Notes: Rfam assigns this 542-nucleotide part of an RNA from cyanobiont of Ornithocercus magnificus to the family "Bacterial large subunit ribosomal RNA". Rfam links the family to the GO terms ribosome and structural constituent of ribosome. The source organism's lineage runs through Bacteria, Bacillati, Cyanobacteriota, Cyanophyceae and Synechococcales. The family has 102 seed sequences and 51,934 matches in Rfam 15.1. Pairs were carried over by alignment from the consensus structure, which is taken from published work.
RNA sequence: UACAAAGGGCUCACGGUGGAUACCUUGGCACACAGAGGCGAUGAAGGACGUGGUUACCUGCGAUAAGUCUCGGGGAGCUGGAAACACGCACUGAUCCGGGAAUUUCCGAAUGGGGCAACCCUUAUGACGGUCAGCUGAAUCCAUAGGCUGGCACGAGCCAACCCAGCGAACUGAAACAUCUUAGUAGCUGGAGGAAAGGAAAGUAAAAACGACUCCCUAAGUAGCGGCGAGCGAACGGGGAAGAGCCUAAACCGAUGGUUUUUGCCAUCGGGGUUGUGGGACAGUAACGUGGAUCAGGGAUGUUAGUAGAAGUGUUUUGAAUGACACGCCAUAGAGGGUGAGAGCCCCGUACACGAAAACUGAACUGGCCUAGCUGUAUCCCGAGUAGCACGGAGCACGUGAAAUUCCGUGUGAAUCUGCGAGGACCACCUCGUAAGGCUAAGUACUCCUGUGUGACCGAUAGCGAAACAGUACCGCGAGGGAAAGGUGAAAAGAACCCCGGGAGGGGAGUGAAAUAGAACAUGAAACCGUGGGCCUACAAG
Numbered sequence: 001u002a003c004a005a006a007g008g009g010c011u012c013a014c015g016g017u018g019g020a021u022a023c024c025u026u027g028g029c030a031c032a033c034a035g036a037g038g039c040g041a042u043g044a045a046g047g048a049c050g051u052g053g054u055u056a057c058c059u060g061c062g063a064u065a066a067g068u069c070u071c072g073g074g075g076a077g078c079u080g081g082a083a084a085c086a087c088g089c090a091c092u093g094a095u096c097c098g099g100g101a102a103u104u105u106c107c108g109a110a111u112g113g114g115g116c117a118a119c120c121c122u123u124a125u126g127a128c129g130g131u132c133a134g135c136u137g138a139a140u141c142c143a144u145a146g147g148c149u150g151g152c153a154c155g156a157g158c159c160a161a162c163c164c165a166g167c168g169a170a171c172u173g174a175a176a177c178a179u180c181u182u183a184g185u186a187g188c189u190g191g192a193g194g195a196a197a198g199g200a201a202a203g204u205a206a207a208a209a210c211g212a213c214u215c216c217c218u219a220a221g222u223a224g225c226g227g228c229g230a231g232c233g234a235a236c237g238g239g240g241a242a243g244a245g246c247c248u249a250a251a252c253c254g255a256u257g258g259u260u261u262u263u264g265c266c267a268u269c270g271g272g273g274u275u276g277u278g279g280g281a282c283a284g285u286a287a288c289g290u291g292g293a294u295c296a297g298g299g300a301u302g303u304u305a306g307u308a309g310a311a312g313u314g315u316u317u318u319g320a321a322u323g324a325c326a327c328g329c330c331a332u333a334g335a336g337g338g339u340g341a342g343a344g345c346c347c348c349g350u351a352c353a354c355g356a357a358a359a360c361u362g363a364a365c366u367g368g369c370c371u372a373g374c375u376g377u378a379u380c381c382c383g384a385g386u387a388g389c390a391c392g393g394a395g396c397a398c399g400u401g402a403a404a405u406u407c408c409g410u411g412u413g414a415a416u417c418u419g420c421g422a423g424g425a426c427c428a429c430c431u432c433g434u435a436a437g438g439c440u441a442a443g444u445a446c447u448c449c450u451g452u453g454u455g456a457c458c459g460a461u462a463g464c465g466a467a468a469c470a471g472u473a474c475c476g477c478g479a480g481g482g483a484a485a486g487g488u489g490a491a492a493a494g495a496a497c498c499c500c501g502g503g504a505g506g507g508g509a510g511u512g513a514a515a516u517a518g519a520a521c522a523u524g525a526a527a528c529c530g531u532g533g534g535c536c537u538a539c540a541a542g
Stems, first nucleotide, its partner, number of pairs: 007537010023487002027458002029455007036447002038158002046107003049062003068101007077089002112121003128155002130152007162193001163191005173180002203210002213443001214241005224232002244440004252271007278382003282376004292370001294368004302360003306354002312327005330334001336348003388412008419434005474481002497508004
Dot-bracket structure: ......((((((((((......((..(((((((((((((......((((((........))).....(((((((..((.........)).....)))))))...)))....(((....)))......(((((((((.........))))))).)).))...((((((.....((....))......))))).).........((....))..((((((.....((.....))....)))))..((((....(((((((......)))))))......(((.((((......(.((((....(((.((....(((((......)))))..(...).(((.......)))....))...)))....)))).)..))))...))).....((((((((.........))))))))......(((((......)))))..))))..)..)).))))))).))...............((....))....)).........((((....))))...................)))))))))).....